[Rfam]
The record is an 81-nucleotide RNA from Terrapene triunguis, which matches "mir-16 microRNA precursor family" in Rfam. On this family, see Calin et al., Proc Natl Acad Sci U S A 2002: "Frequent deletions and down-regulation of micro- RNA genes miR15 and miR16 at 13q14 in chronic lymphocytic leukemia". The family is grouped with related families in Rfam's "mir-15 clan". A search with the family's covariance model found it, with a score of 40 bits.

RNA sequence: UGCUGCCCGCAGCAGCGCAGAAGUAAGGGUGGCAAUACACCAUAUCAUGUCACCCUUACUUCUGCGCUGCUGCUGGCGACA
Numbered sequence: 001u002g003c004u005g006c007c008c009g010c011a012g013c014a015g016c017g018c019a020g021a022a023g024u025a026a027g028g029g030u031g032g033c034a035a036u037a038c039a040c041c042a043u044a045u046c047a048u049g050u051c052a053c054c055c056u057u058a059c060u061u062c063u064g065c066g067c068u069g070c071u072g073c074u075g076g077c078g079a080c081a
Stems, first nucleotide, its partner, number of pairs: 001081002005077003011071008020061001022060008